[Rfam]
RNA sequence: UGAGUCCUGCACGGGAGCCCGGUAGACCGGGCUGAGAGGGCUGGCUGGGAGCCGCCGACCGUCGAACCUGAUCCGGAUAAUGCCGGCGCAGGGAGCGCUCUUCGACCCCAG
Numbered sequence: 001u002g003a004g005u006c007c008u009g010c011a012c013g014g015g016a017g018c019c020c021g022g023u024a025g026a027c028c029g030g031g032c033u034g035a036g037a038g039g040g041c042u043g044g045c046u047g048g049g050a051g052c053c054g055c056c057g058a059c060c061g062u063c064g065a066a067c068c069u070g071a072u073c074c075g076g077a078u079a080a081u082g083c084c085g086g087c088g089c090a091g092g093g094a095g096c097g098c099u100c101u102u103c104g105a106c107c108c109c110a111g
Stems, first nucleotide, its partner, number of pairs: 008097003011062004017032005039056003043052001067092004073086004
This 111-nucleotide RNA from Rugosimonospora africana belongs to the Rfam family "TPP riboswitch aptamer (THI element)".
Taxonomically the source falls in Rugosimonospora (Bacteria, Bacillati, Actinomycetota, Micromonosporales).
The match comes from Rfam's covariance-model search (60 bits).